[Rfam]
RNA sequence: GAUCCGAGAGUAUGGUAAGUAAGAAAUGAAUUUCUUACUUACCAUACUCUCUAUUAGUGUUAUUCUUUAAAUUAGUCCGU
Numbered sequence: 001g002a003u004c005c006g007a008g009a010g011u012a013u014g015g016u017a018a019g020u021a022a023g024a025a026a027u028g029a030a031u032u033u034c035u036u037a038c039u040u041a042c043c044a045u046a047c048u049c050u051c052u053a054u055u056a057g058u059g060u061u062a063u064u065c066u067u068u069a070a071a072u073u074a075g076u077c078c079g080u
Stems, first nucleotide, its partner, number of pairs: 006051012019038008
Overview:
Shown here is an 80-nucleotide RNA sequence from Mikania micrantha, a member of the family "Plastid-psbM 3UTR RNA". The literature on the family includes a 2023 paper in Plant Commun by Richter et al., "Retrograde signaling in plants: A critical review focusing on the GUN pathway and beyond". A search with the family's covariance model found it, with a score of 57 bits. Rfam describes the family as follows. Plastid psbM is a non-coding RNA (ncRNA) recognised in plastids. It was found in the three prime untranslated region (3UTR) of psbM gene, its 3UTR location suggests a role in transcript maturation. Rfam classes the family as a cis-regulatory element.